[Rfam]
RNA sequence: CAGAGGGACUCCUGUCGCAGGAGAGAUGGCGCUUACUGCGAUCAAUGAGCCAUGGAUGCUCCAUUUUUGAGUUAGUAAGCUUCAUCUCUCCUCGGCUGAAGCCCCUUUCAGU
Dot-bracket structure: ....(((.((.(.((((.(((.(((((((....................................................))))))).))))))).).)))))........
RNA: MIR5225 microRNA precursor family
Organism: Hibiscus trionum